[Rfam]
RNA: SAM riboswitch aptamer (S box leader)
Organism: Sphingobacterium spiritivorum
RNA sequence: CGCUUAUAGAGAAAGGCCGAGGGACUAGACCCGAAGAAGCCUUAGCAACCUGUCACUUGACAAGGUGCUAAAUUCUACCCCGCCUGGACACAGGAGGGAAAGAUAAGCC
Number, nucleotide and partner (000 for none) at each position: 001c000002g108003c107004u106005u105006a104007u103008a000009g000010a000011g000012a000013a043014a042015g041016g040017c039018c000019g000020a000021g032022g031023g030024a000025c000026u077027a076028g075029a074030c023031c022032c021033g000034a000035a000036g000037a000038a000039g017040c016041c015042u014043u013044a069045g068046c067047a066048a000049c065050c064051u062052g061053u060054c059055a000056c000057u000058u000059g054060a053061c052062a051063a000064g050065g049066u047067g046068c045069u044070a000071a000072a000073u101074u029075c028076u027077a026078c098079c097080c096081c000082g000083c093084c000085u000086g000087g000088a000089c000090a000091c000092a000093g083094g000095a000096g080097g079098g078099a000100a000101a073102g000103a007104u006105a005106a004107g003108c002109c000